[Rfam]
RNA sequence: UGCCUUUGUGUUGCCCAUUCAUUGCCCACUCCAGAUGAAUGAGGUGUCAGACAAGGCACACAUUAAUUCUUGCAGGGGCUUACUUUAAGGGCACAAACUGUGUUCCCUGUGUAAAUGUUCCUAGCAAGUACAAUU
Numbered sequence: 001u002g003c004c005u006u007u008g009u010g011u012u013g014c015c016c017a018u019u020c021a022u023u024g025c026c027c028a029c030u031c032c033a034g035a036u037g038a039a040u041g042a043g044g045u046g047u048c049a050g051a052c053a054a055g056g057c058a059c060a061c062a063u064u065a066a067u068u069c070u071u072g073c074a075g076g077g078g079c080u081u082a083c084u085u086u087a088a089g090g091g092c093a094c095a096a097a098c099u100g101u102g103u104u105c106c107c108u109g110u111g112u113a114a115a116u117g118u119u120c121c122u123a124g125c126a127a128g129u130a131c132a133a134u135u
Base pairs, nucleotide, nucleotide: 002057003056004055005054006053009049010048012046013045014044015043016041017040018039019038020037021036022035023034069128070127071126072125074122075121076120077119078118083117085115086114088112089110
A member of the RNA family "Small nucleolar RNA SNORA13" from Atractosteus spatula, 135 nucleotides long. Pairs were carried over by alignment from the consensus structure, which was predicted with CMfinder. Taxonomically the source falls in Atractosteus (Eukaryota, Opisthokonta, Metazoa, Eumetazoa). ACA13 is a member of the H/ACA class of snoRNA that guide the sites of modification of uridines to pseudouridines. Rfam classes the family as an H/ACA-box small nucleolar RNA. The family has 50 seed sequences and 1,034 matches in Rfam 15.1. A search with the family's covariance model found it, with a score of 78 bits.